[Rfam]
Shown here is a 62-nucleotide sequence from Klebsormidium nitens, a member of the family "Plastid-psbN 5UTR RNA". A reference for the family is Richter et al. (2023), "Retrograde signaling in plants: A critical review focusing on the GUN pathway and beyond", Plant Commun. The family's RNA type in Rfam is cis-regulatory element.
RNA sequence: UGAAUACUCCCAUUAAGACAGUGGUUCCCCACCCUGGAGCAACUUUUCCAUAUUCUGCAUUC
Numbered sequence: 001u002g003a004a005u006a007c008u009c010c011c012a013u014u015a016a017g018a019c020a021g022u023g024g025u026u027c028c029c030c031a032c033c034c035u036g037g038a039g040c041a042a043c044u045u046u047u048c049c050a051u052a053u054u055c056u057g058c059a060u061u062c
Stems, first nucleotide, its partner, number of pairs: 018046001020044003024040005